[Rfam]
The family of this 54-nucleotide RNA sequence from Lepisosteus oculatus is "Editing element of GABA-3 exon 9". The literature on the family includes a 2007 paper in RNA by Ohlson et al., "Editing modifies the GABA(A) receptor subunit alpha3". The organism belongs to Lepisosteus, within Eukaryota. By type it is a cis-regulatory element. The family's consensus secondary structure is taken from published work. It scores 68 bits against the family's covariance model.
RNA sequence: AAGGUGGCCUACGCAACUGCUAUGGAUUGGUUCAUCGCUGUGUGUUACGCUUUU
Numbered sequence: 001a002a003g004g005u006g007g008c009c010u011a012c013g014c015a016a017c018u019g020c021u022a023u024g025g026a027u028u029g030g031u032u033c034a035u036c037g038c039u040g041u042g043u044g045u046u047a048c049g050c051u052u053u054u
Stems, first nucleotide, its partner, number of pairs: 001054003006051003010047002013045002016041002019038002022035005